[Rfam]
RNA sequence: UUGUAAUUUUGAUGUGGUUGUGGGAGGUGGCGAGUACCGGCAUCUACCCAUGCCACCAUCUUGGUUCUCU
Numbered sequence: 001u002u003g004u005a006a007u008u009u010u011g012a013u014g015u016g017g018u019u020g021u022g023g024g025a026g027g028u029g030g031c032g033a034g035u036a037c038c039g040g041c042a043u044c045u046a047c048c049c050a051u052g053c054c055a056c057c058a059u060c061u062u063g064g065u066u067c068u069c070u
Stems, first nucleotide, its partner, number of pairs: 005066004011060004015055004020051005025045005031039001

Rfam assigns this 70-nucleotide RNA sequence from Myotis davidii to the family "mir-9235 microRNA precursor family". The source organism's lineage runs through Eukaryota, Euteleostomi, Theria, Laurasiatheria and Myotis. Its family is annotated with RISC complex and miRNA-mediated post-transcriptional gene silencing in the Gene Ontology.